[Rfam]
RNA sequence: CCUCGUCGCGCGGGAGAGAACUCCCAUCGAGUCGCCGAAGGCGUAACCCCCCGGAACCGCUCAGGCAAAAGGACCGCGCACGGCAA
Numbered sequence: 001c002c003u004c005g006u007c008g009c010g011c012g013g014g015a016g017a018g019a020a021c022u023c024c025c026a027u028c029g030a031g032u033c034g035c036c037g038a039a040g041g042c043g044u045a046a047c048c049c050c051c052c053g054g055a056a057c058c059g060c061u062c063a064g065g066c067a068a069a070a071g072g073a074c075c076g077c078g079c080a081c082g083g084c085a086a
Stems, first nucleotide, its partner, number of pairs: 008079006020032004034066003037062002041060003047054002
Shown here is an 86-nucleotide sequence from Pseudothauera rhizosphaerae, a member of the family "Glycine riboswitch aptamer". The literature on the family includes a 2004 paper in Science by Mandal et al., "A glycine-dependent riboswitch that uses cooperative binding to control gene expression". Gene Ontology term of the family: glycine biosynthetic process. The pairing is the family consensus, mapped onto this sequence. The source organism's lineage runs through Bacteria, Pseudomonadati, Pseudomonadota, Zoogloeaceae and Pseudothauera.